[Rfam]
RNA sequence: AACCACACUAUCGAUGAAUGGAUUCACUCACGAGAUGACGUGGCUGUUUCACCUAGGACGAGGUCAUGGCAUCCUAUUAUCAGCUAUCACACGAAAUUAAUAGGAUGCUACGUCCUCAUCCUAGAUGGAACAACCAUGUCAUCUCACGGGUGAAUCCAUUCAUCGAUAAUAUGGUU
Numbered sequence: 001a002a003c004c005a006c007a008c009u010a011u012c013g014a015u016g017a018a019u020g021g022a023u024u025c026a027c028u029c030a031c032g033a034g035a036u037g038a039c040g041u042g043g044c045u046g047u048u049u050c051a052c053c054u055a056g057g058a059c060g061a062g063g064u065c066a067u068g069g070c071a072u073c074c075u076a077u078u079a080u081c082a083g084c085u086a087u088c089a090c091a092c093g094a095a096a097u098u099a100a101u102a103g104g105a106u107g108c109u110a111c112g113u114c115c116u117c118a119u120c121c122u123a124g125a126u127g128g129a130a131c132a133a134c135c136a137u138g139u140c141a142u143c144u145c146a147c148g149g150g151u152g153a154a155u156c157c158a159u160u161c162a163u164c165g166a167u168a169a170u171a172u173g174g175u176u
Base pairs, nucleotide, nucleotide: 001176002175003174004173005172007170009168010167011166012165013164014163015162017160018159019158021156022155023154024153025152026151027150028149032145033144035142036141037140038139039138041136042135043134045132046131047130048129051126054123055122057120058119063114065112069108070107071106072105073104074103075102076101077100078099079098086097087096
Notes
The family of this 176-nucleotide sequence from Oryza sativa is "MIR807 microRNA precursor family". Its family is annotated with miRNA-mediated post-transcriptional gene silencing and RISC complex in the Gene Ontology. The base pairs follow the family's consensus structure, which was predicted with WAR.